[Rfam]
RNA: MIR5387 microRNA precursor family
Organism: Sorghum bicolor
RNA sequence: UGGUAACACCGGUGCUAAAGGGUCCCUGCCGCGACAGCACCUGUCAGUAGCCGUUGGGCAGGACCCUUUAGCACCGGCCCGUGUUACAAA
Numbered sequence: 001u002g003g004u005a006a007c008a009c010c011g012g013u014g015c016u017a018a019a020g021g022g023u024c025c026c027u028g029c030c031g032c033g034a035c036a037g038c039a040c041c042u043g044u045c046a047g048u049a050g051c052c053g054u055u056g057g058g059c060a061g062g063a064c065c066c067u068u069u070a071g072c073a074c075c076g077g078c079c080c081g082u083g084u085u086a087c088a089a090a
Stems, first nucleotide, its partner, number of pairs: 003087006009077015025062002030057001032056001034054002041047002